[Rfam]
RNA sequence: GGAGGUUGGCGGUGGACGAACCACUCGCCAACCGGGUCAGGUCCGGAAGGAAGCAGCCCCAACGAGCUUCGGCUCGGGUCACUCGUCGGCCUCCCAC
Numbered sequence: 001g002g003a004g005g006u007u008g009g010c011g012g013u014g015g016a017c018g019a020a021c022c023a024c025u026c027g028c029c030a031a032c033c034g035g036g037u038c039a040g041g042u043c044c045g046g047a048a049g050g051a052a053g054c055a056g057c058c059c060c061a062a063c064g065a066g067c068u069u070c071g072g073c074u075c076g077g078g079u080c081a082c083u084c085g086u087c088g089g090c091c092u093c094c095c096a097c
Base pairs, nucleotide, nucleotide: 004091005090006089007088008087009084011083012082013081014080017076018075019074021072022071024066025065026064027063034059035058036057037056042051043050044049

Bacterial small signal recognition particle RNA: a 97-nucleotide RNA from Pleomorphomonas diazotrophica. The base pairs follow the family's consensus structure, which is taken from published work. The family is grouped with related families in Rfam's "SRP clan". The family's RNA type in Rfam is non-coding RNA gene. On this family, see Rosenblad et al., Nucleic Acids Res 2003: "SRPDB: Signal Recognition Particle Database". A search with the family's covariance model found it, with a score of 54 bits.